[Rfam]
RNA sequence: CUCUGGAGAGAGGCCGUUACGGCCCGCCGACGGGAUAACGAUCUCAGGCAAACGGACAGAG
Numbered sequence: 001c002u003c004u005g006g007a008g009a010g011a012g013g014c015c016g017u018u019a020c021g022g023c024c025c026g027c028c029g030a031c032g033g034g035a036u037a038a039c040g041a042u043c044u045c046a047g048g049c050a051a052a053c054g055g056a057c058a059g060a061g
Stems, first nucleotide, its partner, number of pairs: 001061005012024004026049003029045002033043002
Dot-bracket structure: (((((......((((.....)))).(((((..((.......)))).))).......)))))
Rfam assigns this 61-nucleotide sequence to the family "Glycine riboswitch aptamer". Rfam's curators write: This family represents the bacterial glycine riboswitch. Glycine riboswitches usually consist of two metabolite-binding aptamers domains with similar structures in tandem. The aptamers cooperatively bind glycine to regulate the expression of downstream genes. In Bacillus subtilis, this riboswitch is found upstream of the gcvT operon which controls glycine degradation.